[Rfam]
RNA: Mammalian CPEB3 ribozyme
Organism: Crocodylus porosus
Nucleotides: 076
Stems, first nucleotide, its partner, number of pairs: 013044001016043002021076007029039002048065007
Number, partner (000 for none) and nucleotide at each position: 001000a002000g003000u004000u005000g006000c007000a008000a009000a010000u011000u012000u013044g014000a015000a016043g017042c018000c019000a020000a021076a022075g023074c024073a025072g026071a027070a028000a029039u030038a031000u032000u033000u034000a035000u036000g037000g038030u039029g040000c041000a042017g043016c044013c045000u046000g047000u048065c049064a050063g051062a052061u053060u054059c055000c056000a057000a058000c059054g060053a061052a062051u063050c064049u065048g066000c067000a068000a069000a070027u071026u072025c073024u074023g075022c076021u